Shown here is an 85-nucleotide RNA sequence, a member of the family "dinG RNA". Pairs were carried over by alignment from the consensus structure, which is taken from published work. The sequence is in the family's curated seed alignment.
[Rfam]
RNA sequence: AAUGAUACUUGCACCCCAAAGGGUGCCCCGCCAUGUGGAGAGGGAGAAGCGUCGCUUUGGUUGGAACAUGCCAUUGGGAGCUUUU
Numbered sequence: 001a002a003u004g005a006u007a008c009u010u011g012c013a014c015c016c017c018a019a020a021g022g023g024u025g026c027c028c029c030g031c032c033a034u035g036u037g038g039a040g041a042g043g044g045a046g047a048a049g050c051g052u053c054g055c056u057u058u059g060g061u062u063g064g065a066a067c068a069u070g071c072c073a074u075u076g077g078g079a080g081c082u083u084u085u
Stems, first nucleotide, its partner, number of pairs: 011026005027044003031040001045085006053078001058073004